[Rfam]
Shown here is a 96-nucleotide RNA from Rattus norvegicus, a member of the family "mir-335 microRNA precursor family". Gene Ontology terms of the family: miRNA-mediated post-transcriptional gene silencing and RISC complex. The base pairs follow the family's consensus structure, which was predicted with RNAalifold. Rfam's curators put it in the seed alignment. A reference for the family is Ahn et al. (2010), "MicroRNA transcriptome in the newborn mouse ovaries determined by massive parallel sequencing", Mol Hum Reprod.
RNA sequence: UUUUGGGCGGGGGUCAAGAGCAAUAACGAAAAAUGUUUGUUUUUCGUAAACCGUUUUUCAUUAUUGCUCCUGACCUCCUCUCAUUUGUUAUAGCCA
Numbered sequence: 001u002u003u004u005g006g007g008c009g010g011g012g013g014u015c016a017a018g019a020g021c022a023a024u025a026a027c028g029a030a031a032a033a034u035g036u037u038u039g040u041u042u043u044u045c046g047u048a049a050a051c052c053g054u055u056u057u058u059c060a061u062u063a064u065u066g067c068u069c070c071u072g073a074c075c076u077c078c079u080c081u082c083a084u085u086u087g088u089u090a091u092a093g094c095c096a
Stems, first nucleotide, its partner, number of pairs: 005082003009078008018069009028059008036050005